Record summary
This 89-nucleotide RNA sequence from Dryobates pubescens belongs to the Rfam family "Small nucleolar RNA SNORD70". The family's RNA type in Rfam is C/D-box small nucleolar RNA. Gene Ontology terms of the family: RNA processing and nucleolus. The literature on the family includes a 2001 paper in EMBO J by Huttenhofer et al., "RNomics: an experimental approach that identifies 201 candidates for novel, small, non-messenger RNAs in mouse". The source organism's lineage runs through Eukaryota, Teleostomi, Coelurosauria, Neognathae and Dryobates. The match comes from Rfam's covariance-model search (92 bits). From the family's description: snoRNA HBII-234 belongs to the C/D family of snoRNAs. It is the human orthologue of the mouse MBII-234 and is predicted to guide 2'O-ribose methylation of the small 18S rRNA on position A512.
RNA sequence: UUGCCUGUUGUCAGUGAUGGAUUCUUGUCGAAACUGAAUAUAUAUGAUUUGAGUCAACAUUUCGUCACUACCACUGAGACAACAGGCAG
Numbered sequence: 001u002u003g004c005c006u007g008u009u010g011u012c013a014g015u016g017a018u019g020g021a022u023u024c025u026u027g028u029c030g031a032a033a034c035u036g037a038a039u040a041u042a043u044a045u046g047a048u049u050u051g052a053g054u055c056a057a058c059a060u061u062u063c064g065u066c067a068c069u070a071c072c073a074c075u076g077a078g079a080c081a082a083c084a085g086g087c088a089g
Base pairs, nucleotide, nucleotide: 001089002088003087004086005085006084007083008082009081010080011079012078